Rfam assigns this 110-nucleotide RNA from Anguilla anguilla to the family "Small nucleolar RNA SNORD67".

[Rfam]
RNA sequence: GUCGGGGGUGAUGAGUUGCGCCUGCAGGUGGCGCUGCUCUGCGGUGGCGGAGCGGCUCCACUCGGACUCCUGACGACAAGCCCGAGUGCACAGGGGCCAUCUGACCUGCA
Numbered sequence: 001g002u003c004g005g006g007g008g009u010g011a012u013g014a015g016u017u018g019c020g021c022c023u024g025c026a027g028g029u030g031g032c033g034c035u036g037c038u039c040u041g042c043g044g045u046g047g048c049g050g051a052g053c054g055g056c057u058c059c060a061c062u063c064g065g066a067c068u069c070c071u072g073a074c075g076a077c078a079a080g081c082c083c084g085a086g087u088g089c090a091c092a093g094g095g096g097c098c099a100u101c102u103g104a105c106c107u108g109c110a
Stems, first nucleotide, its partner, number of pairs: 004109001006107003025065001027063001028061004033056003038051005
Pairs were carried over by alignment from the consensus structure. The organism belongs to Anguilla, within Eukaryota.